[Rfam]
RNA sequence: UAUUUAAGGUCCCCAGGUCCUGCGGUGCGGGCGGGCGGUACUUUCCGUCAAGAAACAUCGGGGGCUCGGACGAGGUCCAUACUUUUGGUCCUGUCUUGGGG
Numbered sequence: 001u002a003u004u005u006a007a008g009g010u011c012c013c014c015a016g017g018u019c020c021u022g023c024g025g026u027g028c029g030g031g032c033g034g035g036c037g038g039u040a041c042u043u044u045c046c047g048u049c050a051a052g053a054a055a056c057a058u059c060g061g062g063g064g065c066u067c068g069g070a071c072g073a074g075g076u077c078c079a080u081a082c083u084u085u086u087g088g089u090c091c092u093g094u095c096u097u098g099g100g101g
Stems, first nucleotide, its partner, number of pairs: 011101005019031004034049005068096004075090001077088003
This 101-nucleotide RNA sequence belongs to the Rfam family "Fibrobacter-1 RNA". It is one of the family's seed sequences. Pairs were carried over by alignment from the consensus structure, which is taken from published work.